[Rfam]
This 186-nucleotide sequence from Sutcliffiella cohnii belongs to the Rfam family "Group II catalytic intron D1-D4-5". From the family's description: Group II introns are found in rRNA, tRNA and mRNA of organelles in fungi, plants and protists, and also in mRNA in bacteria. It scores 102 bits against the family's covariance model. Taxonomically the source falls in Sutcliffiella (Bacteria, Bacillati, Caryophanales, Bacillaceae). The pairing is the family consensus, mapped onto this sequence. Gene Ontology term of the family: Group II intron splicing. Rfam 15.1 lists 720 matches to the family in 418 species.
Nucleotides: 186
Stems, first nucleotide, its partner, number of pairs: 018055006031045004056178004066110004070101002073098002076095008117174005125165002129161002131149002
Number, partner (000 for none) and nucleotide at each position: 001000c002000c003000u004000a005000a006000c007000u008000u009000u010000a011000u012000a013000a014000c015000c016000g017000a018055g019054g020053g021052u022051a023050g024000g025000a026000a027000u028000g029000a030000u031045a032044a033043a034042a035000c036000c037000a038000c039000g040000u041000a042034u043033u044032u045031u046000g047000a048000a049000a050023c051022u052021a053020c054019c055018c056178c057177a058176u059175u060000a061000a062000u063000a064000u065000u066110c067109c068108u069107g070101c071100a072000u073098g074097c075000g076095c077094c078093a079092u080091a081090g082089u083088u084000g085000a086000c087000a088083g089082a090081c091080u092079a093078u094077g095076g096000g097074g098073u099000c100071u101070g102000g103000a104000g105000c106000a107069c108068a109067g110066g111000u112000g113000a114000a115000g116000u117174c118173g119172g120171c121170a122000g123000a124000a125165c126164a127000a128000a129161g130160g131149c132148u133000g134000a135000a136000g137000c138000c139000g140000u141000u142000c143000c144000u145000u146000a147000a148132g149131g150000a151000a152000a153000a154000g155000g156000u157000a158000u159000g160130c161129c162000a163000a164126u165125g166000g167000a168000u169000a170121u171120g172119c173118c174117g175059g176058a177057u178056g179000g180000c181000u182000g183000a184000a185000a186000a